[Rfam]
Notes
Rfam assigns this 139-nucleotide RNA sequence from Loxodonta africana to the family "Small nucleolar RNA SNORA46". Pairs were carried over by alignment from the consensus structure, which was predicted with RNAfold. From the family's description: ACA46 is a member of the H/ACA class of snoRNA that guide the sites of modification of uridines to pseudouridines. Rfam's curators put it in the seed alignment. By type it is an H/ACA-box small nucleolar RNA.

RNA sequence: AGCACUAUAUUUAAACCAAUGAAUGGAAAUUUUCCCCGUUCUUGGUUACGCUGUAGUGCUAAAGAAUUCCUUGGCUCUUCCUCUUGCACAGCUGACUCUGUGCCAUUCUGCUGUUGCUGUAUGGAGUUAAGGAACAUAA
Number, nucleotide and partner (000 for none) at each position: 001a000002g059003c058004a057005c056006u055007a054008u053009a052010u000011u000012u000013a000014a047015a046016c045017c044018a000019a000020u000021g041022a040023a039024u038025g037026g036027a000028a000029a000030u000031u000032u000033u000034c000035c000036c026037c025038g024039u023040u022041c021042u000043u000044g017045g016046u015047u014048a000049c000050g000051c000052u009053g008054u007055a006056g005057u004058g003059c002060u000061a000062a000063a000064g000065a000066a000067u134068u133069c132070c131071u130072u000073g128074g127075c126076u125077c124078u000079u000080c123081c000082u121083c000084u000085u000086g117087c116088a115089c113090a112091g111092c110093u000094g108095a107096c000097u000098c000099u000100g000101u000102g000103c000104c000105a000106u000107u095108c094109u000110g092111c091112u090113g089114u000115u088116g087117c086118u000119g000120u000121a082122u000123g080124g077125a076126g075127u074128u073129a000130a071131g070132g069133a068134a067135c000136a000137u000138a000139a000